[Rfam]
RNA sequence: GUAGUGGCUCAUUCACCUGGUUAUGACAGCCCUGCGCAAGCGGACAAGUGCCCAUAAUAUUCGAAUGACGCACAAUACGGUGCCUGUCGUCCACCUCACCGAUAAUCGUUCACUUUGUGACGUUAUCAAACAUCGGACGCAACGUUGAGUUAGGCACCACCUCUUUCGUUACGCUGGCUUUCCGGCGUGACCGCAAUGGCCGGUUCUGUGAACCGGCCAUUUUCAU
Numbered sequence: 001g002u003a004g005u006g007g008c009u010c011a012u013u014c015a016c017c018u019g020g021u022u023a024u025g026a027c028a029g030c031c032c033u034g035c036g037c038a039a040g041c042g043g044a045c046a047a048g049u050g051c052c053c054a055u056a057a058u059a060u061u062c063g064a065a066u067g068a069c070g071c072a073c074a075a076u077a078c079g080g081u082g083c084c085u086g087u088c089g090u091c092c093a094c095c096u097c098a099c100c101g102a103u104a105a106u107c108g109u110u111c112a113c114u115u116u117g118u119g120a121c122g123u124u125a126u127c128a129a130a131c132a133u134c135g136g137a138c139g140c141a142a143c144g145u146u147g148a149g150u151u152a153g154g155c156a157c158c159a160c161c162u163c164u165u166u167c168g169u170u171a172c173g174c175u176g177g178c179u180u181u182c183c184g185g186c187g188u189g190a191c192c193g194c195a196a197u198g199g200c201c202g203g204u205u206c207u208g209u210g211a212a213c214c215g216g217c218c219a220u221u222u223u224c225a226u
Base pairs, nucleotide, nucleotide: 001073002072007071008070009068010067011066012065016063018056019055020053027050079158080157081156082155083154084153085152089138090137091136092135101127102126103125104124105123106122195221196220197219198218199217200216201215202214203213204212205211

GlmZ RNA activator of glmS mRNA: a 226-nucleotide sequence from Erwinia tasmaniensis. Clan: Glm clan. It is annotated as a small RNA. On this family, see Righetti et al., Proc Natl Acad Sci U S A 2016: "Temperature-responsive in vitro RNA structurome of Yersinia pseudotuberculosis". The source organism's lineage runs through Bacteria, Pseudomonadati, Gammaproteobacteria, Erwiniaceae and Erwinia.